Shown here is a 185-nucleotide RNA sequence from Pseudolysobacter antarcticus, a member of the family "6S / SsrS RNA".
Rfam classes the family as a non-coding RNA gene.
A search with the family's covariance model found it, with a score of 75 bits.
E. coli 6S RNA was the first non coding RNA to be sequenced, but its function was unknown until recently.

RNA sequence: UGUCCCCUGCUGUUCACGACCGCGCAUUCUUACAUAUGCCUUGGUCCUAUUUAACGACCCGGGUUAGCAGCGUCGAAAGCUGUGUGCAUGUCCGCCUCGUGCGGAAAGCCUAAGGCCUCGCCAGCUAUCCCACCUGAUCCUCUGGAUCAAGGUCGUUCGAUGCGCAUCGUCAUGGUGGAGGGCGC
Numbered sequence: 001u002g003u004c005c006c007c008u009g010c011u012g013u014u015c016a017c018g019a020c021c022g023c024g025c026a027u028u029c030u031u032a033c034a035u036a037u038g039c040c041u042u043g044g045u046c047c048u049a050u051u052u053a054a055c056g057a058c059c060c061g062g063g064u065u066a067g068c069a070g071c072g073u074c075g076a077a078a079g080c081u082g083u084g085u086g087c088a089u090g091u092c093c094g095c096c097u098c099g100u101g102c103g104g105a106a107a108g109c110c111u112a113a114g115g116c117c118u119c120g121c122c123a124g125c126u127a128u129c130c131c132a133c134c135u136g137a138u139c140c141u142c143u144g145g146a147u148c149a150a151g152g153u154c155g156u157u158c159g160a161u162g163c164g165c166a167u168c169g170u171c172a173u174g175g176u177g178g179a180g181g182g183c184g185c
Stems, first nucleotide, its partner, number of pairs: 002183004007178007017169003038153003042149006061131003065127004070122001072121001074120003079116002086109002091105005